This 139-nucleotide RNA from Aureimonas sp. Leaf454 belongs to the Rfam family "Alphaproteobacterial sRNA ar45". The source organism's lineage runs through Bacteria, Pseudomonadati, Alphaproteobacteria, Hyphomicrobiales and Aureimonas. On this family, see del Val et al., RNA Biol 2012: "A survey of sRNA families in alpha-proteobacteria".
RNA sequence: GCCCAAAGUCGCACGAGCCUGUGGGCGUCCCCCGAUCCUCAAAUGCGAGGUCAUCGGGACGGUCCUGGAGAGAGCCUCCAGUCGGUUUCGCAGCCAGCGAAGUCGAGGACGCCUUAAAGCAACGACGGUGCGGGCCUUU
Numbered sequence: 001g002c003c004c005a006a007a008g009u010c011g012c013a014c015g016a017g018c019c020u021g022u023g024g025g026c027g028u029c030c031c032c033c034g035a036u037c038c039u040c041a042a043a044u045g046c047g048a049g050g051u052c053a054u055c056g057g058g059a060c061g062g063u064c065c066u067g068g069a070g071a072g073a074g075c076c077u078c079c080a081g082u083c084g085g086u087u088u089c090g091c092a093g094c095c096a097g098c099g100a101a102g103u104c105g106a107g108g109a110c111g112c113c114u115u116a117a118a119g120c121a122a123c124g125a126c127g128g129u130g131c132g133g134g135c136c137u138u139u
Stems, first nucleotide, its partner, number of pairs: 001135004008126004017120002023114008031058005037050004065081005082106004088100004